[Rfam]
RNA sequence: CCUAGGGCUUACGCCCUAGGCUAAUAAAGUUCGCCCCUUCAGGGCU
Numbered sequence: 001c002c003u004a005g006g007g008c009u010u011a012c013g014c015c016c017u018a019g020g021c022u023a024a025u026a027a028a029g030u031u032c033g034c035c036c037c038u039u040c041a042g043g044g045c046u
Base pairs, nucleotide, nucleotide: 001020002019003018004017005016006015007014008013033045034044035043036042